The family of this 88-nucleotide RNA from Ictidomys tridecemlineatus is "Vault RNA". It is annotated as a non-coding RNA gene. It is one of the family's seed sequences. Lineage of the source: Eukaryota > Chordata > Craniata > Eutheria > Ictidomys.
RNA sequence: GGGCUGGCUUUAGCUCAGCGGUUCCUUCGCCAGAAAACUUGCAAUCAUCUCGGUGGUUCGAGACCCGCGGGCGCUCACCAGUCCUUUU
Numbered sequence: 001g002g003g004c005u006g007g008c009u010u011u012a013g014c015u016c017a018g019c020g021g022u023u024c025c026u027u028c029g030c031c032a033g034a035a036a037a038c039u040u041g042c043a044a045u046c047a048u049c050u051c052g053g054u055g056g057u058u059c060g061a062g063a064c065c066c067g068c069g070g071g072c073g074c075u076c077a078c079c080a081g082u083c084c085u086u087u088u
Stems, first nucleotide, its partner, number of pairs: 002083006013072004018068004026062004